[Rfam]
RNA sequence: GAAAAUAAGAACACAUGUUCUCAUCUUCCAGGAUGCAGCAGACUGAAGAAAUUCAGACAUCCCGCAACCUGCGAUUAUCGCAAGGUCAAGGCAAAGUCCGGUAAUGGCGUUCUGAAUACCAGAGAUAAUUCUCUGGCGAAACCCACCUUAAGGUGGGUUUU
Number, nucleotide and partner (000 for none) at each position: 001g000002a000003a000004a000005a000006u000007a000008a000009g000010a000011a000012c000013a000014c000015a000016u000017g000018u000019u000020c000021u000022c000023a000024u000025c000026u000027u000028c000029c000030a000031g000032g000033a000034u000035g000036c000037a000038g000039c000040a000041g000042a000043c000044u000045g000046a000047a000048g000049a000050a000051a000052u000053u000054c000055a000056g000057a000058c000059a000060u000061c000062c000063c000064g000065c000066a000067a000068c000069c000070u000071g000072c000073g000074a000075u000076u000077a000078u000079c000080g000081c000082a000083a000084g000085g000086u000087c000088a000089a000090g000091g000092c000093a000094a000095a000096g000097u000098c000099c000100g000101g000102u000103a000104a000105u000106g000107g000108c000109g000110u000111u000112c000113u000114g000115a000116a000117u000118a000119c000120c000121a000122g000123a000124g000125a000126u000127a000128a000129u000130u000131c000132u000133c000134u000135g000136g000137c000138g000139a000140a000141a000142c157143c156144c155145a154146c153147c152148u000149u000150a000151a000152g147153g146154u145155g144156g143157g142158u000159u000160u000161u000
Rfam assigns this 161-nucleotide RNA sequence from Escherichia coli to the family "sroH RNA".
From the family's description: This family consists of a number of bacterial sroH RNA genes of around 160 bases in length. The function of this family is unknown.
On this family, see Vogel et al., Nucleic Acids Res 2003: "RNomics in Escherichia coli detects new sRNA species and indicates parallel transcriptional output in bacteria".